[Rfam]
RNA sequence: GGUUUUUACCCAGUAUCUCAAGGUACUAGGAAUGUUCUGAUCGGAGGAAACUCCGUGUCGGAUUAGAAUUUUUGGCCUGCAUCGAGGGGGUAUUUCCCUUGAUGA
Dot-bracket structure: ......((((..((...(....).))..))..))...(((((((((....))))).))))....................((((((((((...))))))))))..
Rfam assigns this 105-nucleotide sequence from Halicephalobus sp. NKZ332 to the family "SL2 RNA". Taxonomically the source falls in Halicephalobus (Eukaryota, Eumetazoa, Ecdysozoa, Panagrolaimoidea). Pairs were carried over by alignment from the consensus structure, which is taken from published work. The family's RNA type in Rfam is non-coding RNA gene. This family represents SL2 RNA. SL2 RNA is involved in trans splicing in lower eukaryotes. Trans-splicing is a form of RNA processing. The acquisition of a spliced leader from a SL RNA is a intra-molecular reaction which precisely joins exons derived from separately transcribed RNAs. Approximately 25% of C. elegans genes are organised into polycistronic transcription units and the presence of SL2 on an mRNA is an indication the the gene is in an operon.